[Rfam]
Nucleotides: 086
Base pairs, nucleotide, nucleotide: 012037013036017032018031019030020029021028022027041079042078043077045076046075047074048071049070050069055065056064057063
Number, partner (000 for none) and nucleotide at each position: 001000a002000u003000u004000u005000g006000a007000a008000a009000a010000a011000g012037g013036c014000a015000g016000c017032u018031c019030c020029a021028u022027c023000g024000a025000a026000a027022g028021g029020u030019g031018g032017a033000u034000a035000c036013g037012c038000a039000a040000a041079g042078u043077u044000c045076c046075a047074g048071g049070c050069c051000u052000a053000c054000g055065g056064u057063g058000c059000g060000c061000g062000u063057c064056a065055c066000u067000a068000g069050g070049g071048c072000g073000g074047c075046u076045g077043a078042a079041c080000c081000g082000c083000u084000g085000a086000a

The record is an 86-nucleotide RNA sequence from Planococcus lenghuensis, which matches "c-di-GMP-I riboswitch aptamer" in Rfam. Pairs were carried over by alignment from the consensus structure, which is taken from published work. It scores 59 bits against the family's covariance model. Taxonomically the source falls in Planococcus (Bacteria, Bacillota, Bacilli, Caryophanales).